Shown here is a 76-nucleotide sequence from Propithecus coquereli, a member of the family "mir-320 microRNA precursor family".
[Rfam]
RNA sequence: UAUACUGCAGGCCUUCUCUUCCUGGUUCUUCCCAGAGUCGGGAAAAGCUGGGUUGAGAGGGUGUUAAAAAAAAAAA
Numbered sequence: 001u002a003u004a005c006u007g008c009a010g011g012c013c014u015u016c017u018c019u020u021c022c023u024g025g026u027u028c029u030u031c032c033c034a035g036a037g038u039c040g041g042g043a044a045a046a047g048c049u050g051g052g053u054u055g056a057g058a059g060g061g062u063g064u065u066a067a068a069a070a071a072a073a074a075a076a
Base pairs, nucleotide, nucleotide: 014059015058016057017056018055021052022051023050024049025048029044030043031042032041033040
Background: On this family, see Berezikov et al., Genome Res 2006: "Many novel mammalian microRNA candidates identified by extensive cloning and RAKE analysis". The organism belongs to Propithecus, within Eukaryota.